mir-4436 microRNA precursor family: an 85-nucleotide RNA from Pongo abelii. Pairs were carried over by alignment from the consensus structure, which was predicted with RNAalifold. Rfam 15.1 lists 72 matches to the family in 22 species. The source organism's lineage runs through Eukaryota, Euarchontoglires, Hominoidea, Hominidae and Pongo. It scores 88 bits against the family's covariance model.
RNA sequence: GCCUCACUUGUUCACUUCUUCCUGCUUUGCCCCUCGACUCUGCUCCACCAUUUGGGCAGGGCAGGCAGAAGUGGACAAGUGAGGA
Numbered sequence: 001g002c003c004u005c006a007c008u009u010g011u012u013c014a015c016u017u018c019u020u021c022c023u024g025c026u027u028u029g030c031c032c033c034u035c036g037a038c039u040c041u042g043c044u045c046c047a048c049c050a051u052u053u054g055g056g057c058a059g060g061g062c063a064g065g066c067a068g069a070a071g072u073g074g075a076c077a078a079g080u081g082a083g084g085a
Stems, first nucleotide, its partner, number of pairs: 002084018021065012036045002